[Rfam]
RNA sequence: UGGCUAAUGAGGUGAACUGUGCUGGGAUGUUCAUAGAAAGGGCAGUGAAUUGUGAAAGCAGCCUAAGAGCUGAAGCCU
Number, nucleotide and partner (000 for none) at each position: 001u000002g077003g076004c075005u074006a000007a000008u000009g000010a000011g000012g000013u000014g000015a000016a000017c000018u000019g000020u000021g000022c000023u000024g000025g000026g000027a000028u000029g000030u000031u000032c000033a000034u000035a000036g000037a000038a000039a000040g000041g000042g000043c000044a000045g000046u000047g000048a000049a000050u000051u000052g000053u000054g000055a000056a000057a000058g000059c000060a000061g000062c000063c000064u000065a000066a000067g000068a000069g000070c000071u000072g000073a000074a005075g004076c003077c002078u000
RNA: Small nucleolar RNA Z168/Z174